[Rfam]
RNA sequence: GCCAGGUGCAGUGGCAUGUGCCUGCAGUCCCAGCUACUCGGGAGGCUGAGAUGGGAGGAUUGCUUGAGCCCAGGAGUUCUGGGCUAUAAUUCACUAUGCUGAUUAGGUGUCUGCACUAAGUGUGGCAUCGAUAUGGUGAUCUCCUAGGAAUGAGGGACCACCAGGUAGCCUAAGGAGGAGUGAACCAGCCCAGGUCGAAAAUGGAGCAGGUCAAAACUCCUGUGCUAAUCAGUAGUGAGAUCGUGCCUGCGAAUAGCUGUUGCACUCCAGCCUGGGCAAUAUAGCAAGACCUCAUCUCUA
Numbered sequence: 001g002c003c004a005g006g007u008g009c010a011g012u013g014g015c016a017u018g019u020g021c022c023u024g025c026a027g028u029c030c031c032a033g034c035u036a037c038u039c040g041g042g043a044g045g046c047u048g049a050g051a052u053g054g055g056a057g058g059a060u061u062g063c064u065u066g067a068g069c070c071c072a073g074g075a076g077u078u079c080u081g082g083g084c085u086a087u088a089a090u091u092c093a094c095u096a097u098g099c100u101g102a103u104u105a106g107g108u109g110u111c112u113g114c115a116c117u118a119a120g121u122g123u124g125g126c127a128u129c130g131a132u133a134u135g136g137u138g139a140u141c142u143c144c145u146a147g148g149a150a151u152g153a154g155g156g157a158c159c160a161c162c163a164g165g166u167a168g169c170c171u172a173a174g175g176a177g178g179a180g181u182g183a184a185c186c187a188g189c190c191c192a193g194g195u196c197g198a199a200a201a202u203g204g205a206g207c208a209g210g211u212c213a214a215a216a217c218u219c220c221u222g223u224g225c226u227a228a229u230c231a232g233u234a235g236u237g238a239g240a241u242c243g244u245g246c247c248u249g250c251g252a253a254u255a256g257c258u259g260u261u262g263c264a265c266u267c268c269a270g271c272c273u274g275g276g277c278a279a280u281a282u283a284g285c286a287a288g289a290c291c292u293c294a295u296c297u298c299u300a
Stems, first nucleotide, its partner, number of pairs: 001046003004023007028043003048298008060287005068277007079270005085264001087262004094256004099251001104249007111239002114237005120230001123227006129168001131166002134163005140157004145152002169175002176221006188211003195204003
Background:
Rfam assigns this 300-nucleotide RNA sequence from Pongo abelii to the family "Metazoan signal recognition particle RNA". Rfam 15.1 lists 383,523 matches to the family in 1,221 species. The family's consensus secondary structure is taken from published work. On this family, see Wild et al., Curr Opin Struct Biol 2002: "Towards the structure of the mammalian signal recognition particle". The family's RNA type in Rfam is non-coding RNA gene.